[Rfam]
RNA: Small nucleolar RNA SNORA1
Organism: Tupaia belangeri
RNA sequence: AGCUUCAUUCUAGAUGAAAAUGGGCACUGUUGGCUAUAGUGGGCAAAAAUCGUUUAUGUGGCUAAAUACAGACACAGAGUACAGUUCCAUCGCUGUAAAUGUUUUGCAGUGGCGACAAUGAGACAUGUAACAUUU
Number, nucleotide and partner (000 for none) at each position: 001a000002g062003c061004u060005u000006c058007a057008u056009u000010c000011u000012a000013g000014a000015u000016g000017a000018a000019a000020a000021u045022g044023g000024g000025c041026a040027c039028u000029g000030u000031u000032g000033g000034c000035u000036a000037u000038a000039g027040u026041g025042g000043g000044c022045a021046a000047a000048a000049a000050u000051c000052g000053u000054u000055u000056a008057u007058g006059u000060g004061g003062c002063u000064a000065a000066a000067u000068a000069c000070a000071g000072a000073c000074a128075c127076a126077g000078a000079g000080u000081a000082c000083a000084g000085u000086u000087c000088c114089a000090u112091c111092g110093c109094u000095g000096u000097a000098a000099a000100u000101g000102u000103u000104u000105u000106g000107c000108a000109g093110u092111g091112g090113c000114g088115a000116c000117a000118a000119u000120g000121a000122g000123a000124c000125a000126u076127g075128u074129a000130a000131c000132a000133u000134u000135u000